Notes: The family of this 262-nucleotide RNA from Eubacteriaceae bacterium Marseille-Q4139 is "Bacterial large signal recognition particle RNA". The signal recognition particle (SRP) is a universally conserved ribonucleoprotein involved in the co-translational targeting of proteins to membranes. NCBI's taxonomy places the organism under Bacteria, Bacillati, Clostridia, Eubacteriales, Eubacteriaceae.

RNA sequence: CCGUACAGCCGGGGAGUUAGCGGUGCCCUGUACCUGCAAUCCGCUAGAGCAGGGGUGAUAUUCUGCCUAGGGUGACUCGCUGUGGAGCUGCCCCUGGUAAGCGGCGUUGACGUUUUGGUCUUACGCAAUGGGAAUCUCUGAACCGUGUCAGGGCAGGAAUGCAGCAGCACUAAGGGGAACCUCUCAUGUGCCGUGAGGGUGCCGGGACUGAGCUGGCUGCCAGGGUAACGUCUAUGGCGACCACUCGAAGCAGAAUGUACGG
Numbered sequence: 001c002c003g004u005a006c007a008g009c010c011g012g013g014g015a016g017u018u019a020g021c022g023g024u025g026c027c028c029u030g031u032a033c034c035u036g037c038a039a040u041c042c043g044c045u046a047g048a049g050c051a052g053g054g055g056u057g058a059u060a061u062u063c064u065g066c067c068u069a070g071g072g073u074g075a076c077u078c079g080c081u082g083u084g085g086a087g088c089u090g091c092c093c094c095u096g097g098u099a100a101g102c103g104g105c106g107u108u109g110a111c112g113u114u115u116u117g118g119u120c121u122u123a124c125g126c127a128a129u130g131g132g133a134a135u136c137u138c139u140g141a142a143c144c145g146u147g148u149c150a151g152g153g154c155a156g157g158a159a160u161g162c163a164g165c166a167g168c169a170c171u172a173a174g175g176g177g178a179a180c181c182u183c184u185c186a187u188g189u190g191c192c193g194u195g196a197g198g199g200u201g202c203c204g205g206g207a208c209u210g211a212g213c214u215g216g217c218u219g220c221c222a223g224g225g226u227a228a229c230g231u232c233u234a235u236g237g238c239g240a241c242c243a244c245u246c247g248a249a250g251c252a253g254a255a256u257g258u259a260c261g262g
Stems, first nucleotide, its partner, number of pairs: 001262007008056003011029004016024003033053005061255006070246005077240010089227002093224006101217002103214003112208008120197006126188002129186005135178005145170004153162003
Description: By type it is a non-coding RNA gene.